Shown here is a 95-nucleotide sequence from Phoenix dactylifera, a member of the family "Small nucleolar RNA R64/Z200 family".
Taxonomically the source falls in Phoenix (Eukaryota, Streptophytina, Tracheophyta, Magnoliopsida).
Rfam 15.1 lists 748 matches to the family in 228 species.
Rfam links the family to the GO terms RNA processing and nucleolus.
RNA sequence: CUGAUGCUAUGAUGAUUUAUGAAAUACAAUCUUCGCAUAUCAGACUUCAGAGAUGCUUAUGCAUCUAUGAGAAGAUAUUUCAUUUUCUGAGCAAG
Numbered sequence: 001c002u003g004a005u006g007c008u009a010u011g012a013u014g015a016u017u018u019a020u021g022a023a024a025u026a027c028a029a030u031c032u033u034c035g036c037a038u039a040u041c042a043g044a045c046u047u048c049a050g051a052g053a054u055g056c057u058u059a060u061g062c063a064u065c066u067a068u069g070a071g072a073a074g075a076u077a078u079u080u081c082a083u084u085u086u087c088u089g090a091g092c093a094a095g
Base pairs, nucleotide, nucleotide: 001095002094005093006092007091052065053064054063055062
Dot-bracket structure: ((..(((............................................((((......)))).........................)))))
Record summary: For this family Rfam cites "Purified box C/D snoRNPs are able to reproduce site-specific 2'-O-methylation of target RNA in vitro" (Galardi et al., Mol Cell Biol, 2002).